This 94-nucleotide RNA from Podargus strigoides belongs to the Rfam family "Small nucleolar RNA SNORD16".
Lineage of the source: Eukaryota > Deuterostomia > Sarcopterygii > Saurischia > Podargus.
The family is grouped with related families in Rfam's "SNORD16 clan".
Gene Ontology terms of the family: RNA processing and nucleolus.

RNA sequence: UGCUAUGAUGAUGUAAUUUGCAUCUUAUCCAAUGUUCAGUGACUGUUGUCAGUGUGCUGGCACUGUUGAACUGAAGAUUCCUUCAUUCUGAGCA
Numbered sequence: 001u002g003c004u005a006u007g008a009u010g011a012u013g014u015a016a017u018u019u020g021c022a023u024c025u026u027a028u029c030c031a032a033u034g035u036u037c038a039g040u041g042a043c044u045g046u047u048g049u050c051a052g053u054g055u056g057c058u059g060g061c062a063c064u065g066u067u068g069a070a071c072u073g074a075a076g077a078u079u080c081c082u083u084c085a086u087u088c089u090g091a092g093c094a
Stems, first nucleotide, its partner, number of pairs: 001094003021076001023074002030065002033062002039057002041050003

The family's consensus secondary structure was predicted with PFOLD.